[Rfam]
RNA sequence: GUUAAAAUAUUAGUGGUUAUUGAUAUAUCGGCCCGGAUAUGGCGGGCAAGUCUCUACCCUCUAGCCUAAAACAUGAGGACUAUCAAAAGCCUAUUAACUUAU
Numbered sequence: 001g002u003u004a005a006a007a008u009a010u011u012a013g014u015g016g017u018u019a020u021u022g023a024u025a026u027a028u029c030g031g032c033c034c035g036g037a038u039a040u041g042g043c044g045g046g047c048a049a050g051u052c053u054c055u056a057c058c059c060u061c062u063a064g065c066c067u068a069a070a071a072c073a074u075g076a077g078g079a080c081u082a083u084c085a086a087a088a089g090c091c092u093a094u095u096a097a098c099u100u101a102u
Base pairs, nucleotide, nucleotide: 018088020086021085022084023083024082025081031047032046033045034044035043058078059077060076061075064072